[Rfam]
RNA: tRNA
RNA sequence: GGUAGGAUGGCUGAGUAAGCGGUGGAUUGUAACCCCACAUACAGAGGUUUGAGCCCUCUUCUUGCCA
Numbered sequence: 001g002g003u004a005g006g007a008u009g010g011c012u013g014a015g016u017a018a019g020c021g022g023u024g025g026a027u028u029g030u031a032a033c034c035c036c037a038c039a040u041a042c043a044g045a046g047g048u049u050u051g052a053g054c055c056c057u058c059u060u061c062u063u064g065c066c067a
Stems, first nucleotide, its partner, number of pairs: 001066007010020003022038004043059005